[Rfam]
RNA sequence: UGUCCCGGCUCUCUACUUGGAUCGUCCGGCACGUACCUGUCGGUGGAGGUUAAAAACAU
Numbered sequence: 001u002g003u004c005c006c007g008g009c010u011c012u013c014u015a016c017u018u019g020g021a022u023c024g025u026c027c028g029g030c031a032c033g034u035a036c037c038u039g040u041c042g043g044u045g046g047a048g049g050u051u052a053a054a055a056a057c058a059u
Stems, first nucleotide, its partner, number of pairs: 010049006026043006

Overview: msiK RNA: a 59-nucleotide sequence from Actinomyces sp. HMSC065F12. The family's RNA type in Rfam is cis-regulatory element. The family has 120 seed sequences and 1,374 matches in Rfam 15.1. The organism belongs to Actinomyces, within Bacteria. The match comes from Rfam's covariance-model search (43 bits).